[Rfam]
RNA sequence: AAGACAUUUGGACCGUCUGUCUACUGAGCCAUUUCAUCCGCUCAGUGGAAGACCUUCCCAACACGCCUU
Numbered sequence: 001a002a003g004a005c006a007u008u009u010g011g012a013c014c015g016u017c018u019g020u021c022u023a024c025u026g027a028g029c030c031a032u033u034u035c036a037u038c039c040g041c042u043c044a045g046u047g048g049a050a051g052a053c054c055u056u057c058c059c060a061a062c063a064c065g066c067c068u069u
Stems, first nucleotide, its partner, number of pairs: 005065001010058003015053003020049010
Shown here is a 69-nucleotide RNA from Bombyx mori, a member of the family "mir-2774 microRNA precursor family". Taxonomically the source falls in Bombyx (Eukaryota, Metazoa, Pancrustacea, Neolepidoptera). The family's consensus secondary structure was predicted with RNAalifold. Rfam links the family to the GO terms RISC complex and miRNA-mediated post-transcriptional gene silencing. The match comes from Rfam's covariance-model search (56 bits).